[Rfam]
RNA sequence: UAACCAUUGCAUAAAGCAAUGCUGAGCGAACAGAAAUCAGCAGAGGUCAUAGUAGCCAGGAGGUGAAGGAC
Numbered sequence: 001u002a003a004c005c006a007u008u009g010c011a012u013a014a015a016g017c018a019a020u021g022c023u024g025a026g027c028g029a030a031c032a033g034a035a036a037u038c039a040g041c042a043g044a045g046g047u048c049a050u051a052g053u054a055g056c057c058a059g060g061a062g063g064u065g066a067a068g069g070a071c
Stems, first nucleotide, its partner, number of pairs: 001024002005021006037044002046071003055064003
This 71-nucleotide RNA sequence from Firmicutes bacterium AF36-19BH belongs to the Rfam family "Group II catalytic intron D1-D4-1".
Pairs were carried over by alignment from the consensus structure.
The match comes from Rfam's covariance-model search (55 bits).
Group II introns are found in rRNA, tRNA and mRNA of organelles in fungi, plants and protists, and also in mRNA in bacteria.
Lineage of the source: Bacteria > Bacillati > Bacillota.